A member of the RNA family "MIR821 microRNA precursor family" from Oryza sativa, 275 nucleotides long.
NCBI's taxonomy places the organism under Eukaryota, Embryophyta, Mesangiospermae, Oryzeae, Oryza sativa.
The base pairs follow the family's consensus structure, which was predicted with RNAalifold.

[Rfam]
RNA sequence: AAUUUCAGUUGAAAAAGUCAUCAACAACAAAAGUUGUAUAACUUAUCAAGAUCUAUAACUUUUAUUUUGGUCAUUUCUUCAUCCGACAAAGUGAUAGUAACAUUUUCACAAAAUUUACAUAUCUCUCUUAUAGUUUAGAAAACCAUAUAAGAGAUAUGUAAAUUUUGUGAACUAUGUUAUUAUCACUUUGUCGGAUGAAGAAAUGACUAAAAUAAAAGUUAAAGAUCUUGAUGAGUUAUAUAACUUUGUUGUUGAUGACUUUUUCAGCUGAAAUC
Numbered sequence: 001a002a003u004u005u006c007a008g009u010u011g012a013a014a015a016a017g018u019c020a021u022c023a024a025c026a027a028c029a030a031a032a033g034u035u036g037u038a039u040a041a042c043u044u045a046u047c048a049a050g051a052u053c054u055a056u057a058a059c060u061u062u063u064a065u066u067u068u069g070g071u072c073a074u075u076u077c078u079u080c081a082u083c084c085g086a087c088a089a090a091g092u093g094a095u096a097g098u099a100a101c102a103u104u105u106u107c108a109c110a111a112a113a114u115u116u117a118c119a120u121a122u123c124u125c126u127c128u129u130a131u132a133g134u135u136u137a138g139a140a141a142a143c144c145a146u147a148u149a150a151g152a153g154a155u156a157u158g159u160a161a162a163u164u165u166u167g168u169g170a171a172c173u174a175u176g177u178u179a180u181u182a183u184c185a186c187u188u189u190g191u192c193g194g195a196u197g198a199a200g201a202a203a204u205g206a207c208u209a210a211a212a213u214a215a216a217a218g219u220u221a222a223a224g225a226u227c228u229u230g231a232u233g234a235g236u237u238a239u240a241u242a243a244c245u246u247u248g249u250u251g252u253u254g255a256u257g258a259c260u261u262u263u264u265c266a267g268c269u270g271a272a273a274u275c
Stems, first nucleotide, its partner, number of pairs: 014262008023253002026250002031246013045232010056221013070207007078199005084193010095182006102175002105171008114162002117159006131145001133143004